The record is a 265-nucleotide RNA from Clostridium acidisoli, which matches "Bacterial large signal recognition particle RNA" in Rfam. A search with the family's covariance model found it, with a score of 208 bits. Rfam links the family to the GO terms signal recognition particle, plasma membrane targeting and SRP-dependent cotranslational protein targeting to membrane, signal sequence recognition. The family is grouped with related families in Rfam's "SRP clan". The source organism's lineage runs through Bacteria, Clostridia, Eubacteriales, Clostridiaceae and Clostridium acidisoli. Pairs were carried over by alignment from the consensus structure, which is taken from published work. For this family Rfam cites "SRPDB: Signal Recognition Particle Database" (Rosenblad et al., Nucleic Acids Res, 2003).
RNA sequence: UUGUGCUAGACGGGGAGUUAGCGGUGUCUUGUAACCUGCAAUCCGCUAUAGCAGGGUUGAAGUCCUUGUGUAGGCUUUAGUCUGUAAUGUCUGUCUUAUAAAAGUGGUGUUGAGAGCCGGGUCCCACGCAACGGAAAUUCAUGAAACCCGUCAGGUUCGGAAGAAAGCAGCGGUAAGUGAACACUUCCGUGUGCCGUGGAAAAACCUAGUUUGAGCUAACUAUAUAAGUAACGGUUAUGGGCUAUUGUCGAAGCAAGGUGCACAA
Numbered sequence: 001u002u003g004u005g006c007u008a009g010a011c012g013g014g015g016a017g018u019u020a021g022c023g024g025u026g027u028c029u030u031g032u033a034a035c036c037u038g039c040a041a042u043c044c045g046c047u048a049u050a051g052c053a054g055g056g057u058u059g060a061a062g063u064c065c066u067u068g069u070g071u072a073g074g075c076u077u078u079a080g081u082c083u084g085u086a087a088u089g090u091c092u093g094u095c096u097u098a099u100a101a102a103a104g105u106g107g108u109g110u111u112g113a114g115a116g117c118c119g120g121g122u123c124c125c126a127c128g129c130a131a132c133g134g135a136a137a138u139u140c141a142u143g144a145a146a147c148c149c150g151u152c153a154g155g156u157u158c159g160g161a162a163g164a165a166a167g168c169a170g171c172g173g174u175a176a177g178u179g180a181a182c183a184c185u186u187c188c189g190u191g192u193g194c195c196g197u198g199g200a201a202a203a204a205c206c207u208a209g210u211u212u213g214a215g216c217u218a219a220c221u222a223u224a225u226a227a228g229u230a231a232c233g234g235u236u237a238u239g240g241g242c243u244a245u246u247g248u249c250g251a252a253g254c255a256a257g258g259u260g261c262a263c264a265a
Base pairs, nucleotide, nucleotide: 001265002264003263004262005261006260009058010057011056012030013029014028015027017025018024019023035055036054037053038052039051064258065257066256067255068254069253073249074248075247079243080242081241082240083239084238085237086236087235088234092230093229096227097226098225099224100223104220105219106217107216108215114212115211116210117209119207120206121205122204124199125198126197127196128195129191130190132189133188134187135186136185138181139180140179141178142177148173149172150171151170156165157164158163